[Rfam]
RNA sequence: AGAGCAUCAGUGAGGAGCUUUUAAAUUGUUAUCCUUGCACUAUGAUUGUUCAGUGAAGAAACAAUAUGGGCAUGUUCUCUCUGAGAUGCUG
Numbered sequence: 001a002g003a004g005c006a007u008c009a010g011u012g013a014g015g016a017g018c019u020u021u022u023a024a025a026u027u028g029u030u031a032u033c034c035u036u037g038c039a040c041u042a043u044g045a046u047u048g049u050u051c052a053g054u055g056a057a058g059a060a061a062c063a064a065u066a067u068g069g070g071c072a073u074g075u076u077c078u079c080u081c082u083g084a085g086a087u088g089c090u091g
Stems, first nucleotide, its partner, number of pairs: 003090006
A member of the RNA family "Small nucleolar RNA snoR26" from Gossypium gossypioides, 91 nucleotides long.
Rfam links the family to the GO terms RNA processing and nucleolus.
The match comes from Rfam's covariance-model search (77 bits).